[Rfam]
RNA: mir-9058 microRNA precursor family
RNA sequence: GUGGUUGCUGGACGGGUGCUCUCUACUAGUGCUGUGCAGAGGCUUUCACUGAGGCUACUGUGAGACUGUAGGGUUUCCCCCUGGGCUACAGAGCCGG
Numbered sequence: 001g002u003g004g005u006u007g008c009u010g011g012a013c014g015g016g017u018g019c020u021c022u023c024u025a026c027u028a029g030u031g032c033u034g035u036g037c038a039g040a041g042g043c044u045u046u047c048a049c050u051g052a053g054g055c056u057a058c059u060g061u062g063a064g065a066c067u068g069u070a071g072g073g074u075u076u077c078c079c080c081c082u083g084g085g086c087u088a089c090a091g092a093g094c095c096g097g
Stems, first nucleotide, its partner, number of pairs: 002096005007086003010082002014080003018076001021073006028067002032064002036061004041056006